[Rfam]
RNA sequence: UUGCCCUGCCUUUCAGGCAUCCUCUCCCAAGACUUUUUAGCCCGGUUGGUUCUUCCAACCGGGCUUUUUUCUGUCUGGA
Numbered sequence: 001u002u003g004c005c006c007u008g009c010c011u012u013u014c015a016g017g018c019a020u021c022c023u024c025u026c027c028c029a030a031g032a033c034u035u036u037u038u039a040g041c042c043c044g045g046u047u048g049g050u051u052c053u054u055c056c057a058a059c060c061g062g063g064c065u066u067u068u069u070u071c072u073g074u075c076u077g078g079a
Base pairs, nucleotide, nucleotide: 008018009017010016011015040064041063042062043061044060045059046058047057048056

Annotation
Rfam assigns this 79-nucleotide sequence from Qipengyuania marisflavi to the family "Makes More Granules Regulator RNA (mmgR)". By type it is a small RNA. Gene Ontology terms of the family: DNA-templated transcription, termination, response to nitrogen compound and protein binding. SuhB later renamed mmgR (makes more granules regulator) was a putative non-coding RNA found multiple times in the Agrobacterium tumefaciens genome and related alpha-proteobacteria. Other non-coding RNAs uncovered in the same analysis include: speF, ybhL, metA, and serC.Several studies inSinorhizobium meliloti showed that suhB element is indeed a non-coding RNA:firstly it was detected on Northern blot and called Sm8RNA, secondly in an RNAseq study referred to as SmelC689.The mutant phenotype's (strain lacking the small RNA) cytoplasm contains higher content of polyhydroxybutyrate (PBH)storage granules than wild type strain. The sRNA is required to limit the PBH intracellular accumulation when the nitrogen-fixing Sinorhizobium meliloti is under condition of surplus carbon in relation to nitrogen. The match comes from Rfam's covariance-model search (54 bits). The pairing is the family consensus, mapped onto this sequence.